This 104-nucleotide sequence from Anaerosalibacter massiliensis belongs to the Rfam family "SAM riboswitch aptamer (S box leader)". Gene Ontology term of the family: regulation of gene expression. Lineage of the source: Bacteria > Bacillati > Tissierellia > Sporanaerobacteraceae > Anaerosalibacter. Rfam describes the family as follows. The SAM riboswitch is found upstream of a number of genes which code for proteins involved in methionine or cysteine biosynthesis in Gram-positive bacteria.
RNA sequence: AUCUUAUCAAGAGAGGUGGAGGGACUGGCCCUAUGAAGCCCGGCAACAACCAGUUUAAACUGGAAAUGUGCCAAUUCCUGCAGCCAUUGGCUGAAAGAUAAGAA
Numbered sequence: 001a002u003c004u005u006a007u008c009a010a011g012a013g014a015g016g017u018g019g020a021g022g023g024a025c026u027g028g029c030c031c032u033a034u035g036a037a038g039c040c041c042g043g044c045a046a047c048a049a050c051c052a053g054u055u056u057a058a059a060c061u062g063g064a065a066a067u068g069u070g071c072c073a074a075u076u077c078c079u080g081c082a083g084c085c086a087u088u089g090g091c092u093g094a095a096a097g098a099u100a101a102g103a104a
Stems, first nucleotide, its partner, number of pairs: 002103007013041001015040003021031003025080001027078002042072004047068002050063003076096001081093005